[Rfam]
RNA sequence: AACCGCCGUCCACAGGACGUCAAGUUCCCGGGCGGCGGUCAGAUCGUUGGUGGAGUUUACUUGUUGCCGCGCAGGGGCCCUCGGUUAGGUGUGCGCGCGACGAGAAAGACUUCAGAGCGGUCGCAACCCCGCGGCA
Numbered sequence: 001a002a003c004c005g006c007c008g009u010c011c012a013c014a015g016g017a018c019g020u021c022a023a024g025u026u027c028c029c030g031g032g033c034g035g036c037g038g039u040c041a042g043a044u045c046g047u048u049g050g051u052g053g054a055g056u057u058u059a060c061u062u063g064u065u066g067c068c069g070c071g072c073a074g075g076g077g078c079c080c081u082c083g084g085u086u087a088g089g090u091g092u093g094c095g096c097g098c099g100a101c102g103a104g105a106a107a108g109a110c111u112u113c114a115g116a117g118c119g120g121u122c123g124c125a126a127c128c129c130c131g132c133g134g135c136a
Stems, first nucleotide, its partner, number of pairs: 003038009015027004042122006048115001050113001052112002055110004061104001062102002068097006077090003
Dot-bracket structure: ..(((((((((...((((.....))))..)))))))))...(((((((.(.((.((((..(((....((((((...(((........))).))))))...)).)..))))))).).))))))..............

Rfam assigns this 136-nucleotide RNA to the family "Hepatitis C alternative reading frame stem-loop". Its family is annotated with regulation of translation in the Gene Ontology. It is one of the family's seed sequences. The family's consensus secondary structure was predicted with RNAfold.